[Rfam]
RNA sequence: CAGCAAGCCUCCAGCGUGCUGGGGCCUGUCGUGCCCUAUGUAUUCCUGCAGUGCUUGCCAGAGCAAUUCGGAACGGUUUGAGGCCUCGCCCUGCUUCAUCCAGAGCGAGGUUAUAGACUUUCGGACAGUC
Numbered sequence: 001c002a003g004c005a006a007g008c009c010u011c012c013a014g015c016g017u018g019c020u021g022g023g024g025c026c027u028g029u030c031g032u033g034c035c036c037u038a039u040g041u042a043u044u045c046c047u048g049c050a051g052u053g054c055u056u057g058c059c060a061g062a063g064c065a066a067u068u069c070g071g072a073a074c075g076g077u078u079u080g081a082g083g084c085c086u087c088g089c090c091c092u093g094c095u096u097c098a099u100c101c102a103g104a105g106c107g108a109g110g111u112u113a114u115a116g117a118c119u120u121u122c123g124g125a126c127a128g129u130c
Stems, first nucleotide, its partner, number of pairs: 003058006017042003022036003026033001069123005084110006091103003
This 130-nucleotide RNA from Ochotona princeps belongs to the Rfam family "Small nucleolar RNA SNORA9". ACA9 is a member of the H/ACA class of snoRNA that guide the sites of modification of uridines to pseudouridines. Lineage of the source: Eukaryota > Vertebrata > Gnathostomata > Theria > Ochotona. The family's RNA type in Rfam is H/ACA-box small nucleolar RNA.